[Rfam]
RNA sequence: GGUCACGAGUGCCAGCGCUAAACCCCGGUUUGCUGGCCGGCAACCCUCCUUUCGCGGUGGGGUGCCCCGGGUGACGACCUGGUCGAUAUCAAAAGAUACCGGCAAGCGCGGACC
Dot-bracket structure: ((((....(.((((((....((......)).)))))))(((..(((.((......))..))).))).........))))..((((.((((....)))).))))...........

The record is a 114-nucleotide RNA from Psychromicrobium lacuslunae, which matches "SAM (S-adenosyl methionine) riboswitch aptamer" in Rfam.
The base pairs follow the family's consensus structure, which is taken from published work.
The source organism's lineage runs through Bacteria, Bacillati, Actinomycetota, Micrococcales and Psychromicrobium.